[Rfam]
RNA sequence: ACCGGGAGCGGCGGCGCGCUCCUGUAAUCCGGCUGCUCGGAGGUCGGAUUGCGUGGAUGGUUUGAGGUGGGGGUAACUGUGGCGGGACGCUCCGCGUUGAACGGACGUCCGCGCUAAGCUUGUCGUCAAUAUGGAUCCGGCGGGGUAGCCCAUCGGAUCCAGGUUAGCUAAGGCGAGGCGAACCGGGCCAGGGGGGAAACCCAGCAGCCAAAAGUCUCCGCGGUGAGCAGUAGCGGGAUCGCGUCUGCGAGUAGAACGCUCGUUUGCAGCCCCGCCGACACAACCAGACCGCAAUCCAA
Numbered sequence: 001a002c003c004g005g006g007a008g009c010g011g012c013g014g015c016g017c018g019c020u021c022c023u024g025u026a027a028u029c030c031g032g033c034u035g036c037u038c039g040g041a042g043g044u045c046g047g048a049u050u051g052c053g054u055g056g057a058u059g060g061u062u063u064g065a066g067g068u069g070g071g072g073g074u075a076a077c078u079g080u081g082g083c084g085g086g087a088c089g090c091u092c093c094g095c096g097u098u099g100a101a102c103g104g105a106c107g108u109c110c111g112c113g114c115u116a117a118g119c120u121u122g123u124c125g126u127c128a129a130u131a132u133g134g135a136u137c138c139g140g141c142g143g144g145g146u147a148g149c150c151c152a153u154c155g156g157a158u159c160c161a162g163g164u165u166a167g168c169u170a171a172g173g174c175g176a177g178g179c180g181a182a183c184c185g186g187g188c189c190a191g192g193g194g195g196g197a198a199a200c201c202c203a204g205c206a207g208c209c210a211a212a213a214g215u216c217u218c219c220g221c222g223g224u225g226a227g228c229a230g231u232a233g234c235g236g237g238a239u240c241g242c243g244u245c246u247g248c249g250a251g252u253a254g255a256a257c258g259c260u261c262g263u264u265u266g267c268a269g270c271c272c273c274g275c276c277g278a279c280a281c282a283a284c285c286a287g288a289c290c291g292c293a294a295u296c297c298a299a
Base pairs, nucleotide, nucleotide: 001044002043003042004023005022006021007020008019009018010017028041029040030039046297047296048295049294050293051292052291053290058286059285060284061283062282066276067275068274069273070272071271072270077269078268079267080266081265082264083262085261086260088258089257091255092254094252095251097249102247103246104245105244106243107242108241109237110236112235113234114233115232116231118228119227120226121225122224123223124222125221126220128165129164130163132161133160134159135158136157137156138155139154140153142151143150144149168172175218176217177216178215179214186209187208188207193202194201195200